[Rfam]
RNA sequence: CGGGAUACCCCUCGUUAAGGAACUCGGCAAAAUGGCCCCGUAACUUCGGGAGAAGGGGCGCCUCCUUGGGUGAUGAGCUCGAGGAGGCCGCAGAGAAACGGCCCAGGCGACUGUUUAACAAAAACACAGGUCCCUGCUAACUCGUGAGAGGAUGUAUAGGGGCUGAUGCCUGCCCAGUGCCGGAAGGUCAAGGGGAGGGGUGCACGUAGCCCCAAACCGAAGCCCCGGUAAACGGCGGCCGUAACUAUAACGGUCCUAAGGUAGCGAAAUUCCUUGUCGGGUAAGUUCCGACCCGCACGAAAGGCAUAACGAUCUGGGCACUGUCUCAACGAGGGACCCG
Number, nucleotide and partner (000 for none) at each position: 001c340002g339003g338004g337005a000006u000007a000008c000009c335010c334011c333012u332013c331014g330015u329016u328017a000018a326019g325020g324021a000022a000023c000024u000025c000026g000027g000028c000029a000030a000031a000032a000033u000034g000035g059036c058037c057038c056039c055040g000041u000042a000043a000044c049045u000046u000047c000048g000049g044050g000051a000052g000053a000054a000055g039056g038057g037058g036059c035060g088061c087062c086063u085064c084065c083066u082067u081068g080069g079070g078071u077072g000073a000074u000075g000076a000077g071078c070079u069080c068081g067082a066083g065084g064085a063086g062087g061088c060089c093090g000091c000092a000093g089094a000095g000096a000097a000098a000099c000100g000101g319102c318103c317104c316105a315106g314107g313108c311109g310110a000111c000112u126113g125114u124115u000116u000117a000118a000119c000120a000121a000122a000123a000124a114125c113126a112127c000128a000129g164130g163131u162132c161133c160134c159135u158136g157137c154138u000139a000140a000141c150142u149143c148144g000145u000146g000147a000148g143149a142150g141151g000152a000153u000154g137155u000156a000157u136158a135159g134160g133161g132162g131163c130164u129165g000166a000167u306168g305169c304170c303171u000172g236173c235174c234175c000176a000177g233178u232179g229180c228181c227182g226183g225184a000185a000186g224187g223188u222189c000190a000191a000192g218193g217194g000195g000196a000197g213198g212199g211200g210201u209202g000203c000204a000205c000206g000207u000208a000209g201210c200211c199212c198213c197214a000215a000216a000217c193218c192219g000220a000221a000222g188223c187224c186225c183226c182227g181228g180229u179230a000231a000232a178233c177234g174235g173236c172237g255238g254239c253240c252241g251242u250243a000244a000245c000246u000247a000248u000249a000250a242251c241252g240253g239254u238255c237256c260257u000258a000259a000260g256261g000262u000263a000264g000265c000266g293267a000268a000269a000270u000271u000272c000273c000274u000275u000276g292277u291278c290279g289280g288281g287282u000283a000284a000285g000286u000287u281288c280289c279290g278291a277292c276293c266294c000295g000296c000297a000298c000299g000300a000301a000302a000303g170304g169305c168306a167307u000308a000309a000310c109311g108312a000313u107314c106315u105316g104317g103318g102319c101320a000321c000322u000323g000324u020325c019326u018327c000328a016329a015330c014331g013332a012333g011334g010335g009336a000337c004338c003339c002340g001
Shown here is a 340-nucleotide part of an RNA from Thermobaculum terrenum, a member of the family "Bacterial large subunit ribosomal RNA". NCBI's taxonomy places the organism under Bacteria, Bacillati, Chloroflexota, Chloroflexia, Thermobaculum terrenum. It is one of the family's seed sequences.